[Rfam]
RNA sequence: UAACAAGUAAAUAAAUUCAUUCAUAUAAUCCUAAUAAUAUGGUUUAGGAGUCUCUACGUAAGAACCGUAAAUUCUUCGUCUAUGAGUGAAUCUUUGUGGAAU
Number, nucleotide and partner (000 for none) at each position: 001u000002a000003a000004c000005a000006a000007g000008u000009a000010a000011a000012u000013a000014a000015a000016u000017u000018c088019a087020u086021u085022c084023a083024u082025a081026u000027a000028a000029u049030c048031c047032u046033a045034a044035u000036a000037a000038u000039a000040u000041g000042g000043u000044u034045u033046a032047g031048g030049a029050g000051u000052c000053u000054c000055u000056a000057c000058g000059u000060a076061a075062g074063a073064a072065c000066c000067g000068u000069a000070a000071a000072u064073u063074c062075u061076u060077c000078g000079u000080c000081u025082a024083u023084g022085a021086g020087u019088g018089a000090a000091u000092c000093u000094u000095u000096g000097u000098g000099g000100a000101a000102u000
The family of this 102-nucleotide RNA from Clostridium thermopalmarium is "Purine riboswitch aptamer". The organism belongs to Clostridium thermopalmarium, within Bacteria.